[Rfam]
RNA sequence: GCACGUGACUCUUUCCUGUUCCUCGCUGUGCAGUGCAGGUCUGGGAACAGGUGGUGCUACAGCACAGCACUGGAAAUCCAGAUGGGUUGUUUUCCACUGGUUUGGGACUCAUCUCUACACCUCUGCAACACUU
Numbered sequence: 001g002c003a004c005g006u007g008a009c010u011c012u013u014u015c016c017u018g019u020u021c022c023u024c025g026c027u028g029u030g031c032a033g034u035g036c037a038g039g040u041c042u043g044g045g046a047a048c049a050g051g052u053g054g055u056g057c058u059a060c061a062g063c064a065c066a067g068c069a070c071u072g073g074a075a076a077u078c079c080a081g082a083u084g085g086g087u088u089g090u091u092u093u094c095c096a097c098u099g100g101u102u103u104g105g106g107a108c109u110c111a112u113c114u115c116u117a118c119a120c121c122u123c124u125g126c127a128a129c130a131c132u133u
Stems, first nucleotide, its partner, number of pairs: 001057004013047006021039002067126003072121001080114008094105003
Dot-bracket structure: ((((........((((((..((...............))..))))))......)))).........(((..(.......((((((((......(((......))).))))))))......)..))).......

This 133-nucleotide sequence from Xiphorhynchus elegans belongs to the Rfam family "Small nucleolar RNA SNORA55". It scores 110 bits against the family's covariance model. The family's RNA type in Rfam is H/ACA-box small nucleolar RNA. Rfam describes the family as follows. ACA55 is a member of the H/ACA class of snoRNA that guide the sites of modification of uridines to pseudouridines. Gene Ontology terms of the family: nucleolus and RNA processing. The family has 29 seed sequences and 1,476 matches in Rfam 15.1.